A member of the RNA family "Alphaproteobacterial sRNA BjrC1505" from Devosia geojensis, 138 nucleotides long. For this family Rfam cites "Small RNAs of the Bradyrhizobium/Rhodopseudomonas lineage and their analysis" (Madhugiri et al., RNA Biol, 2012). The match comes from Rfam's covariance-model search (58 bits).
RNA sequence: GAGUCGCGUUAACGUGCAAUUAAGACGUUCGCGGUAACCUCUCAUUAUUCAGAGUUCUUCUGGAUUUCAGAGUGGUUUCUCCCUCUGUUUGACGCCUCCCUGUUAACUUCCGAGAGCCGUUUCGACGGCUCUUUUCUU
Numbered sequence: 001g002a003g004u005c006g007c008g009u010u011a012a013c014g015u016g017c018a019a020u021u022a023a024g025a026c027g028u029u030c031g032c033g034g035u036a037a038c039c040u041c042u043c044a045u046u047a048u049u050c051a052g053a054g055u056u057c058u059u060c061u062g063g064a065u066u067u068c069a070g071a072g073u074g075g076u077u078u079c080u081c082c083c084u085c086u087g088u089u090u091g092a093c094g095c096c097u098c099c100c101u102g103u104u105a106a107c108u109u110c111c112g113a114g115a116g117c118c119g120u121u122u123c124g125a126c127g128g129c130u131c132u133u134u135u136c137u138u
Stems, first nucleotide, its partner, number of pairs: 001043003006015002016038001021036002026031001047065007070085003074082002091104004112133009